[Rfam]
RNA sequence: CCGCAUCUACUGAUAGACCGUGAACAGUUCUCCGUUGUUCUUCUGGUUUGCACAAUGAUGCGAAAGAACACUUCCUCGCACUUUCUGCCUGCCUUGCGUGGCCGCCCAGAUUGAAUCGGGGAGUACAGCU
Number, nucleotide and partner (000 for none) at each position: 001c000002c062003g061004c060005a059006u058007c057008u000009a000010c000011u052012g051013a000014u050015a049016g048017a047018c046019c045020g000021u000022g040023a039024a038025c037026a036027g035028u034029u000030c000031u000032c000033c000034g028035u027036u026037g025038u024039u023040c022041u000042u000043c000044u000045g019046g018047u017048u016049u015050g014051c012052a011053c000054a000055a000056u000057g007058a006059u005060g004061c003062g002063a000064a000065a000066g000067a000068a000069c000070a000071c000072u000073u122074c121075c120076u119077c118078g117079c000080a000081c113082u000083u000084u110085c109086u108087g107088c000089c104090u000091g102092c101093c100094u000095u000096g000097c000098g000099u000100g093101g092102c091103c000104g089105c000106c000107c087108a086109g085110a084111u000112u000113g081114a000115a000116u000117c078118g077119g076120g075121g074122a073123g000124u000125a000126c000127a000128g000129c000130u000
Shown here is a 130-nucleotide RNA from Ornithorhynchus anatinus, a member of the family "Small nucleolar RNA SNORA31". ACA31 (SNORA31) belongs to the H/ACA class of snoRNAs which are thought to guide the sites of modification of uridines to pseudouridines. ACA31 is predicted to guide the pseudouridylation of U3713 in 28S rRNA and U218 in 18S rRNA. This family includes the mouse homologue snoMBI-161. Rfam classes the family as an H/ACA-box small nucleolar RNA.